[Rfam]
Rfam assigns this 102-nucleotide RNA from Bacillus salacetis to the family "Purine riboswitch aptamer".

RNA sequence: AUAAGAACUGAAACAUUACGUCGUAUAAUUUUGGGGAUAAGGCCCAGCAGUUUCUACCGAGCUACCGUAAAUGGCUUGACUACGAGGUGAUGGUCUGAUGAA
Numbered sequence: 001a002u003a004a005g006a007a008c009u010g011a012a013a014c015a016u017u018a019c020g021u022c023g024u025a026u027a028a029u030u031u032u033g034g035g036g037a038u039a040a041g042g043c044c045c046a047g048c049a050g051u052u053u054c055u056a057c058c059g060a061g062c063u064a065c066c067g068u069a070a071a072u073g074g075c076u077u078g079a080c081u082a083c084g085a086g087g088u089g090a091u092g093g094u095c096u097g098a099u100g101a102a
Stems, first nucleotide, its partner, number of pairs: 018088002021085005029049001031047005058078007

A search with the family's covariance model found it, with a score of 84 bits. Riboswitches are metabolite binding domains within certain messenger RNAs that serve as precision sensors for their corresponding targets. Pairs were carried over by alignment from the consensus structure, which is taken from published work.